[Rfam]
RNA: Betaproteobacteria toxic small RNA
Organism: Leptothrix cholodnii
RNA sequence: UGUCUCCUCCACCCUCCUCUAAAGGUGGAUUAAACCCGGGGUUCAUCCCCCGGGUUUUUUUUC
Dot-bracket structure: .......((((((..........))))))...((((((((........)))))))).......